[Rfam]
RNA sequence: UGUGACUGUGAUGAGCCAAUACAGACCUGUAAUGACUUGCGAAAAUGAUCGCAACUUAUGAACAUCUAAGGGACUGAGUCUCG
Numbered sequence: 001u002g003u004g005a006c007u008g009u010g011a012u013g014a015g016c017c018a019a020u021a022c023a024g025a026c027c028u029g030u031a032a033u034g035a036c037u038u039g040c041g042a043a044a045a046u047g048a049u050c051g052c053a054a055c056u057u058a059u060g061a062a063c064a065u066c067u068a069a070g071g072g073a074c075u076g077a078g079u080c081u082c083g
Stems, first nucleotide, its partner, number of pairs: 002082001004080003
Shown here is an 83-nucleotide sequence from Lactuca sativa, a member of the family "Small nucleolar RNA SNORD25". Its Rfam clan is "SNORD25 clan". Gene Ontology terms of the family: RNA processing and nucleolus. The source organism's lineage runs through Eukaryota, Magnoliopsida, asterids, Asterales and Lactuca. A search with the family's covariance model found it, with a score of 64 bits. The family's RNA type in Rfam is C/D-box small nucleolar RNA.